[Rfam]
RNA: c-di-GMP-I riboswitch aptamer
RNA sequence: CUCAAGCAAGGGCAAACUCACCGAAAGGUGGGGACGCAAAGCCACCGGUCUAAGGGAAUGAAUCCUAGGACAGCGGGGUUGCCAGC
Numbered sequence: 001c002u003c004a005a006g007c008a009a010g011g012g013c014a015a016a017c018u019c020a021c022c023g024a025a026a027g028g029u030g031g032g033g034a035c036g037c038a039a040a041g042c043c044a045c046c047g048g049u050c051u052a053a054g055g056g057a058a059u060g061a062a063u064c065c066u067a068g069g070a071c072a073g074c075g076g077g078g079u080u081g082c083c084a085g086c
Base pairs, nucleotide, nucleotide: 012037013036017032018031019030020029021028022027040080041079042078043077045076046075047074048071049070050069055065056064057063